[Rfam]
RNA sequence: GGCUUUUUUCGCCAGAGAACUCGACCCUCGACCGCCCAGAUGAACGCCUUCAUCGACGUCCACCGCGACCGCUUCGGCGUCGCGCCGAUCUGCCGGGUCCUGCAGGUCGCGCCA
Number, nucleotide and partner (000 for none) at each position: 001g000002g000003c000004u000005u000006u000007u000008u000009u000010c000011g000012c000013c000014a000015g029016a028017g025018a000019a000020c000021u000022c000023g000024a000025c017026c000027c000028u016029c015030g000031a000032c000033c000034g000035c000036c000037c000038a000039g000040a000041u000042g000043a000044a000045c000046g000047c000048c000049u000050u000051c000052a000053u000054c000055g000056a000057c000058g000059u000060c000061c000062a000063c000064c000065g000066c000067g000068a000069c000070c000071g000072c000073u000074u000075c000076g113077g112078c111079g110080u000081c000082g000083c000084g000085c000086c109087g108088a000089u106090c105091u104092g103093c102094c000095g100096g000097g000098u000099c000100c095101u000102g093103c092104a091105g090106g089107u000108c087109g086110c079111g078112c077113c076114a000
A member of the RNA family "ALIL pseudoknot" from Nonomuraea maritima, 114 nucleotides long. It scores 68 bits against the family's covariance model. Pairs were carried over by alignment from the consensus structure, which is taken from published work. Rfam classes the family as a cis-regulatory element. On this family, see Mazauric et al., J Biol Chem 2008: "Apical loop-internal loop RNA pseudoknots: a new type of stimulator of -1 translational frameshifting in bacteria".